[Rfam]
RNA: Mason-Pfizer monkey virus packaging signal
Organism: Sciurus carolinensis
RNA sequence: UGAUGCCCAACGUGGGGUGUGGACACGGGGGAAAUCGCGAGGGAAGAGGCGUUUGAUAAUUCGGGGGAACACAGCAGAAGUCGGUUCAACAAAGAUCGCCUGUGAACCUGCCACGUCACUCUUAAAAGGUACAGUAACGCUAAAUUAUGGGACAAGAUUUAAGUAAGCAUAGAGUUUUUGUUAAGCAAUUAAAAGAAGCCUUAAAGACACGGGGAGUAAGGGUUAAAAGUAAUGAGCUUUUUAAGUUUUUUGAACUUAUCAAGGACACCUUCCCAU
Numbered sequence: 001u002g003a004u005g006c007c008c009a010a011c012g013u014g015g016g017g018u019g020u021g022g023a024c025a026c027g028g029g030g031g032a033a034a035u036c037g038c039g040a041g042g043g044a045a046g047a048g049g050c051g052u053u054u055g056a057u058a059a060u061u062c063g064g065g066g067g068a069a070c071a072c073a074g075c076a077g078a079a080g081u082c083g084g085u086u087c088a089a090c091a092a093a094g095a096u097c098g099c100c101u102g103u104g105a106a107c108c109u110g111c112c113a114c115g116u117c118a119c120u121c122u123u124a125a126a127a128g129g130u131a132c133a134g135u136a137a138c139g140c141u142a143a144a145u146u147a148u149g150g151g152a153c154a155a156g157a158u159u160u161a162a163g164u165a166a167g168c169a170u171a172g173a174g175u176u177u178u179u180g181u182u183a184a185g186c187a188a189u190u191a192a193a194a195g196a197a198g199c200c201u202u203a204a205a206g207a208c209a210c211g212g213g214g215a216g217u218a219a220g221g222g223u224u225a226a227a228a229g230u231a232a233u234g235a236g237c238u239u240u241u242u243a244a245g246u247u248u249u250u251u252g253a254a255c256u257u258a259u260c261a262a263g264g265a266c267a268c269c270u271u272c273c274c275a276u
Base pairs, nucleotide, nucleotide: 006031007030008029012026013025014024036048038046081129082128085125086124094121096118099115101113102112135155140151141150143148160203161202162201163199164198210252211251212250213249214248215247216246217245220238221237223235224234225233261276263274264273